[Rfam]
RNA sequence: AUACGAAAAGGCAAACCUAGCGAAAGUUAGGGACGCAAAGCCACGGGCCUCAUUUUCAUGUGGCGGCCGGGCUGCCGAAA
Dot-bracket structure: ..........((...((((((....))))))..[))..((((.((((((............))).]))))))).......